[Rfam]
RNA: Bacterial large subunit ribosomal RNA, nucleotides 2073 to 2659
RNA sequence: CCCGCAGCUAGACGAAAAGACCCCGUGCACCUUUACUAUACUUUUACUAUGAGUUACGGCAAUUGCUGCGCAGGAUAGGUGGGAGGCUUUGAUACCAGACUUUUGGGUUUGGUGGAGCCAACGGUGAGAUACCACCCUGCGAUUGUUGUGAUUCUAACCUGCUCCCCUGAUCGGGGAGAGGGACAUAGUAAGACGGGUAGUUUGACUGGGGCGGUCGCCUCCUAAAUUGUAACGGAGGCGCGCGAAGCUACACUCAGGCCGUUUGGAAAUCGGCCGUCGAGUGCAAAGGCAUAAGUGUGGUUAACUGCGAGACCUACAAGUCGAGCAGAUGCGAAAGCAGGCCUUAGUGAUCCGGUGGUUCUGUAUGGAAGGGCCAUCGCUCAACGGAUAAAAGGUACGCCGGGGAUAACAGGCUGAUCGAAGCCAAGAGUUCAUAUCGACGCUUCGGUUUGGCACCUCGAUGUCGGCUCAUCACAUCCUGGAGCUGUAGAAGGUUCCAAGGGUUAGGCUGUUCGCCUAUUAAAGUGGUACGUGAGCUGGGUUCAGAACGUCGCGAGACAGUUCGGUCUCUAUCUGCUGUGGGCGUA
Numbered sequence: 001c002c003c004g005c006a007g008c009u010a011g012a013c014g015a016a017a018a019g020a021c022c023c024c025g026u027g028c029a030c031c032u033u034u035a036c037u038a039u040a041c042u043u044u045u046a047c048u049a050u051g052a053g054u055u056a057c058g059g060c061a062a063u064u065g066c067u068g069c070g071c072a073g074g075a076u077a078g079g080u081g082g083g084a085g086g087c088u089u090u091g092a093u094a095c096c097a098g099a100c101u102u103u104u105g106g107g108u109u110u111g112g113u114g115g116a117g118c119c120a121a122c123g124g125u126g127a128g129a130u131a132c133c134a135c136c137c138u139g140c141g142a143u144u145g146u147u148g149u150g151a152u153u154c155u156a157a158c159c160u161g162c163u164c165c166c167c168u169g170a171u172c173g174g175g176g177a178g179a180g181g182g183a184c185a186u187a188g189u190a191a192g193a194c195g196g197g198u199a200g201u202u203u204g205a206c207u208g209g210g211g212c213g214g215u216c217g218c219c220u221c222c223u224a225a226a227u228u229g230u231a232a233c234g235g236a237g238g239c240g241c242g243c244g245a246a247g248c249u250a251c252a253c254u255c256a257g258g259c260c261g262u263u264u265g266g267a268a269a270u271c272g273g274c275c276g277u278c279g280a281g282u283g284c285a286a287a288g289g290c291a292u293a294a295g296u297g298u299g300g301u302u303a304a305c306u307g308c309g310a311g312a313c314c315u316a317c318a319a320g321u322c323g324a325g326c327a328g329a330u331g332c333g334a335a336a337g338c339a340g341g342c343c344u345u346a347g348u349g350a351u352c353c354g355g356u357g358g359u360u361c362u363g364u365a366u367g368g369a370a371g372g373g374c375c376a377u378c379g380c381u382c383a384a385c386g387g388a389u390a391a392a393a394g395g396u397a398c399g400c401c402g403g404g405g406a407u408a409a410c411a412g413g414c415u416g417a418u419c420g421a422a423g424c425c426a427a428g429a430g431u432u433c434a435u436a437u438c439g440a441c442g443c444u445u446c447g448g449u450u451u452g453g454c455a456c457c458u459c460g461a462u463g464u465c466g467g468c469u470c471a472u473c474a475c476a477u478c479c480u481g482g483a484g485c486u487g488u489a490g491a492a493g494g495u496u497c498c499a500a501g502g503g504u505u506a507g508g509c510u511g512u513u514c515g516c517c518u519a520u521u522a523a524a525g526u527g528g529u530a531c532g533u534g535a536g537c538u539g540g541g542u543u544c545a546g547a548a549c550g551u552c553g554c555g556a557g558a559c560a561g562u563u564c565g566g567u568c569u570c571u572a573u574c575u576g577c578u579g580u581g582g583g584c585g586u587a
Base pairs, nucleotide, nucleotide: 001583002582003581004580005579006578007577008576010575011574012573014570015569022404023403024402025401027400028399029396030395031394032393033392035201036200037199038198042193043192044191045190046189047188048187051154052153053152054151055150056149057148058147059146060145061144062143063142064141065140066139068137078136079135080134081133082132085119086118087117094113095112096111097110098109099108100107101106158181159180160179162178163177164176165175166174167173204216205215206214207213217239218238219237220236221235222234240385242342243341248300249299250298251297252296253295254280255279257275258274259273260272261271281290282289305328306327307326308325311322312321313320330339331338332337353379354378355377356376357375358374359373361372362371413454414453415452417451418448419447420446421445422444423443424442428438429437465540466538467537468536469535470532471529472528473527474526475525478503479502481498482497483496484495485494486493505519506518507517508516509515546564547563548562549561550559551558552557